[Rfam]
RNA sequence: CAGGCUAACUCUCGUUAAGGAACUCUGCAAAAUAACCUCGUAACUUCGGGAGAAGAGGAGCCCUUGUGUGUGAGUAUACACGCGAUACAAAGCGCACGAGGGUCGCAGUGAAGAGGCUCAAGCAACUGUUUAACAAAAACACAGGUCUAUGCUAAGCUGUAAGGCGAUGUAUAUGGGCUGACACCUGCCCAGUGCUGGAAGGUUAAGAGGAGGAGUGAGAGCUCCGAAUUGAAGCCCCAGUGAACGGCGGCCGUAACUAUAACGGUCCUAAGGUAGCGAAAUUCCUUGUCGGGUAAGUUCCGACCUGCACGAAUGGUGUAAUGAUUUGAGCGCUGUCUUGACGGGAGGCCUG
Number, nucleotide and partner (000 for none) at each position: 001c352002a351003g350004g349005c000006u000007a000008a000009c347010u346011c345012u344013c343014g342015u341016u340017a000018a338019g337020g336021a000022a000023c000024u000025c000026u000027g000028c000029a000030a000031a000032a000033u000034a000035a000036c058037c057038u056039c055040g000041u000042a000043a000044c049045u000046u000047c000048g000049g044050g000051a000052g000053a000054a000055g039056a038057g037058g036059a000060g103061c102062c101063c100064u099065u098066g000067u000068g000069u000070g000071u000072g000073a000074g000075u000076a000077u000078a000079c000080a000081c000082g095083c094084g093085a000086u091087a000088c000089a000090a000091a086092g000093c084094g083095c082096a000097c000098g065099a064100g063101g062102g061103u060104c108105g000106c000107a000108g104109u000110g000111a000112a000113g000114a000115g000116g331117c330118u329119c328120a327121a326122g325123c323124a322125a000126c000127u141128g140129u139130u000131u000132a000133a000134c000135a000136a000137a000138a000139a129140c128141a127142c000143a000144g179145g178146u177147c176148u175149a174150u173151g172152c169153u000154a000155a000156g165157c164158u163159g000160u000161a000162a000163g158164g157165c156166g000167a000168u000169g152170u000171a000172u151173a150174u149175g148176g147177g146178c145179u144180g000181a000182c318183a317184c316185c315186u000187g248188c247189c246190c000191a000192g245193u244194g241195c240196u239197g238198g237199a000200a000201g236202g235203u234204u000205a000206a000207g230208a229209g000210g000211a000212g225213g224214a223215g222216u221217g000218a000219g000220a000221g216222c215223u214224c213225c212226g000227a000228a000229u208230u207231g000232a000233a000234g203235c202236c201237c198238c197239a196240g195241u194242g000243a000244a193245c192246g189247g188248c187249g267250g266251c265252c264253g263254u262255a000256a000257c000258u000259a000260u000261a000262a254263c253264g252265g251266u250267c249268c272269u000270a000271a000272g268273g000274u000275a000276g000277c000278g305279a000280a000281a000282u000283u000284c000285c000286u000287u000288g304289u303290c302291g301292g300293g299294u000295a000296a000297g000298u000299u293300c292301c291302g290303a289304c288305c278306u000307g000308c000309a000310c000311g000312a000313a000314u000315g185316g184317u183318g182319u000320a000321a000322u124323g123324a000325u122326u121327u120328g119329a118330g117331c116332g000333c000334u000335g000336u020337c019338u018339u000340g016341a015342c014343g013344g012345g011346a010347g009348g000349c004350c003351u002352g001
A member of the RNA family "Bacterial large subunit ribosomal RNA" from Fusobacterium animalis, 352 nucleotides of a longer RNA. It is one of the family's seed sequences. The source organism's lineage runs through Bacteria, Fusobacteriia, Fusobacteriaceae, Fusobacterium and Fusobacterium animalis. Rfam 15.1 lists 51,934 matches to the family in 10,816 species. The base pairs follow the family's consensus structure, which is taken from published work.